[Rfam]
RNA: Lysine riboswitch aptamer
RNA sequence: UCGGAAGAUAGAGGUGCAUUUUUUAUCAGUAGGUCCAUUGAGGUAUAUGGGUACCGAUGAUAUGGGCUGAAAGGAAAAAAUGCCGAAGGAAAAUUUCACCCAUAUGGAGUUUUCCUGGUCCUUCAGUGAAUAACUGCUGGACUGUCAUCAAUUUUUCAAUUGAUGGAGCGCUAUCGGUAGU
Numbered sequence: 001u002c003g004g005a006a007g008a009u010a011g012a013g014g015u016g017c018a019u020u021u022u023u024u025a026u027c028a029g030u031a032g033g034u035c036c037a038u039u040g041a042g043g044u045a046u047a048u049g050g051g052u053a054c055c056g057a058u059g060a061u062a063u064g065g066g067c068u069g070a071a072a073g074g075a076a077a078a079a080a081u082g083c084c085g086a087a088g089g090a091a092a093a094u095u096u097c098a099c100c101c102a103u104a105u106g107g108a109g110u111u112u113u114c115c116u117g118g119u120c121c122u123u124c125a126g127u128g129a130a131u132a133a134c135u136g137c138u139g140g141a142c143u144g145u146c147a148u149c150a151a152u153u154u155u156u157c158a159a160u161u162g163a164u165g166g167a168g169c170g171c172u173a174u175c176g177g178u179a180g181u
Stems, first nucleotide, its partner, number of pairs: 007175005016083009032068007087116012117143005124136004145166007